This 54-nucleotide RNA from Salmo trutta belongs to the Rfam family "UnaL2 LINE 3' element". Pairs were carried over by alignment from the consensus structure, which is taken from published work. The match comes from Rfam's covariance-model search (56 bits). Its family is annotated with transposition, RNA-mediated in the Gene Ontology.

RNA sequence: UGCAUUCACUACUCUAAGUCGCUCUGGAUGAGAGCAUCUGCUAAAUGACUAAAA
Numbered sequence: 001u002g003c004a005u006u007c008a009c010u011a012c013u014c015u016a017a018g019u020c021g022c023u024c025u026g027g028a029u030g031a032g033a034g035c036a037u038c039u040g041c042u043a044a045a046u047g048a049c050u051a052a053a054a
Base pairs, nucleotide, nucleotide: 013043015040016039021035022034023033024032025031